[Rfam]
RNA sequence: UGGCCUGAAAUGAUGUUACGAAUUCAUGUCUCUUCUCUGACAUAUGUCGUGGAGAUGAGUAUGUGCAUUUCUGAUCAGGCUU
Numbered sequence: 001u002g003g004c005c006u007g008a009a010a011u012g013a014u015g016u017u018a019c020g021a022a023u024u025c026a027u028g029u030c031u032c033u034u035c036u037c038u039g040a041c042a043u044a045u046g047u048c049g050u051g052g053a054g055a056u057g058a059g060u061a062u063g064u065g066c067a068u069u070u071c072u073g074a075u076c077a078g079g080c081u082u
Stems, first nucleotide, its partner, number of pairs: 002081004
RNA: Small nucleolar RNA SNORD111